[Rfam]
Shown here is an 81-nucleotide sequence from Roseovarius nanhaiticus, a member of the family "chrB-a RNA". It is annotated as a cis-regulatory element.
RNA sequence: UUCAUGGGGACGACAGCGACUUCCCCGUGAGGCUUUGGCCCAAUGUCGCAUCCUGAACUCGAUUGCUCAGAGGAUGCCAUG
Numbered sequence: 001u002u003c004a005u006g007g008g009g010a011c012g013a014c015a016g017c018g019a020c021u022u023c024c025c026c027g028u029g030a031g032g033c034u035u036u037g038g039c040c041c042a043a044u045g046u047c048g049c050a051u052c053c054u055g056a057a058c059u060c061g062a063u064u065g066c067u068c069a070g071a072g073g074a075u076g077c078c079a080u081g
Base pairs, nucleotide, nucleotide: 005027006026007025008024009023010022048077049076050075051074052073053072